[Rfam]
RNA sequence: CGGGGUUGGUGGCGCACUUCCUGAAUAUCGGGCAGUGUCACUCGUCUGCGAAACGCAAACAGAUACCUGGCCCGCUAAGAUGCGGGUUUUUUUAU
Numbered sequence: 001c002g003g004g005g006u007u008g009g010u011g012g013c014g015c016a017c018u019u020c021c022u023g024a025a026u027a028u029c030g031g032g033c034a035g036u037g038u039c040a041c042u043c044g045u046c047u048g049c050g051a052a053a054c055g056c057a058a059a060c061a062g063a064u065a066c067c068u069g070g071c072c073c074g075c076u077a078a079g080a081u082g083c084g085g086g087u088u089u090u091u092u093u094a095u
Stems, first nucleotide, its partner, number of pairs: 009041004015037004020032004069088007076080001
Dot-bracket structure: ........((((..((((.((((.....)))).))))))))...........................((((((((...).))))))).......